The record is a 91-nucleotide RNA from a Solemya velesiana gill symbiont, which matches "t44 RNA" in Rfam. The source organism's lineage runs through Bacteria, Pseudomonadati, Pseudomonadota, Gammaproteobacteria and sulfur-oxidizing symbionts.
[Rfam]
RNA sequence: AUCUGCCGGGGAAUAUUACACACACACACCGUCACGACUGUCGGGGUGCCCGGGAAACCGGGUCGGCAGCCGGGGUGUGUGGAGGAAAAAC
Numbered sequence: 001a002u003c004u005g006c007c008g009g010g011g012a013a014u015a016u017u018a019c020a021c022a023c024a025c026a027c028a029c030c031g032u033c034a035c036g037a038c039u040g041u042c043g044g045g046g047u048g049c050c051c052g053g054g055a056a057a058c059c060g061g062g063u064c065g066g067c068a069g070c071c072g073g074g075g076u077g078u079g080u081g082g083a084g085g086a087a088a089a090a091c
Stems, first nucleotide, its partner, number of pairs: 023081008035072002038069006048063005